[Rfam]
RNA sequence: UCGGGCAUCGCAGGUUCCCGGCGUCGGAAAGACGGCUCCCCGUCCAAGUCCUGC
Numbered sequence: 001u002c003g004g005g006c007a008u009c010g011c012a013g014g015u016u017c018c019c020g021g022c023g024u025c026g027g028a029a030a031g032a033c034g035g036c037u038c039c040c041c042g043u044c045c046a047a048g049u050c051c052u053g054c
Stems, first nucleotide, its partner, number of pairs: 001021005010054005031044005